[Rfam]
RNA: Antizyme RNA frameshifting stimulation element
Nucleotides: 059
Stems, first nucleotide, its partner, number of pairs: 007043005013037006025059003029055002
Number, partner (000 for none) and nucleotide at each position: 001000a002000g003000a004000u005000a006000c007043c008042c009041c010040u011039u012000a013037c014036c015035c016034a017033c018032c019000c020000u021000g022000g023000a024000a025059g026058a027057u028000c029055c030054c031000a032018g033017g034016u035015g036014g037013g038000c039011a040010a041009g042008g043007g044000a045000g046000u047000a048000g049000u050000c051000a052000g053000a054030g055029g056000a057027a058026u059025c